[Rfam]
RNA: Streptomyces sRNA 4677
Organism: Streptomyces sporangiiformans
RNA sequence: GGGCCCGAUGCCAAAGAAGAAAGAACCGGGGAAAGAACCAACCCACCCCACCCAGCCCGUCAUCCACCGCACCCCUGGUCACUCGGUCGGGUGAUCGCGGCCAAUUCAGCUGGCGAGUCGGCCAAUUGGUGGGGCAGCGUCUGCCCCGACAGACAACCGCACACGUGAAACGGCCCUCGCCGGGACUGCAAUCCCGAGCGAGGGCCUCACCACCUAGGAAGCCAACACCUUCCCG
Numbered sequence: 001g002g003g004c005c006c007g008a009u010g011c012c013a014a015a016g017a018a019g020a021a022a023g024a025a026c027c028g029g030g031g032a033a034a035g036a037a038c039c040a041a042c043c044c045a046c047c048c049c050a051c052c053c054a055g056c057c058c059g060u061c062a063u064c065c066a067c068c069g070c071a072c073c074c075c076u077g078g079u080c081a082c083u084c085g086g087u088c089g090g091g092u093g094a095u096c097g098c099g100g101c102c103a104a105u106u107c108a109g110c111u112g113g114c115g116a117g118u119c120g121g122c123c124a125a126u127u128g129g130u131g132g133g134g135c136a137g138c139g140u141c142u143g144c145c146c147c148g149a150c151a152g153a154c155a156a157c158c159g160c161a162c163a164c165g166u167g168a169a170a171c172g173g174c175c176c177u178c179g180c181c182g183g184g185a186c187u188g189c190a191a192u193c194c195c196g197a198g199c200g201a202g203g204g205c206c207u208c209a210c211c212a213c214c215u216a217g218g219a220a221g222c223c224a225a226c227a228c229c230u231u232c233c234c235g
Stems, first nucleotide, its partner, number of pairs: 001065003079094006109144002112141002172206005178200003182195004217233005